Shown here is a 126-nucleotide RNA sequence from Streptomyces albus, a member of the family "Glycine riboswitch aptamer". Rfam links the family to the GO term glycine biosynthetic process.
[Rfam]
RNA sequence: GCACAUCUGAAAAGCGGGCACGGCAGCCUCGGGCGCCGCGCCCCACCCAAGGUGCAAGCCGGACCGGAUUCCCCCGGGGAUCCGCUACCGGCGAACCUCUCAGGUUCCGAUGACAGAUGGGGAGGA
Number, nucleotide and partner (000 for none) at each position: 001g000002c121003a000004c119005a118006u117007c116008u115009g114010a000011a000012a000013a000014g000015c000016g043017g042018g041019c040020a000021c000022g000023g000024c000025a000026g000027c000028c000029u000030c000031g000032g000033g000034c000035g000036c000037c000038g000039c000040g019041c018042c017043c016044c000045a105046c104047c103048c000049a100050a000051g000052g099053u000054g097055c000056a000057a000058g092059c091060c090061g089062g088063a000064c000065c000066g000067g000068a000069u000070u000071c000072c000073c000074c000075c000076g000077g000078g000079g000080a000081u000082c000083c000084g000085c000086u000087a000088c062089c061090g060091g059092c058093g000094a000095a000096c000097c054098u000099c052100u049101c000102a000103g047104g046105u045106u000107c000108c000109g000110a000111u000112g000113a000114c009115a008116g007117a006118u005119g004120g000121g002122g000123a000124g000125g000126a000

Lineage of the source: Bacteria > Actinomycetota > Streptomycetaceae > Streptomyces > Streptomyces albus subsp. albus.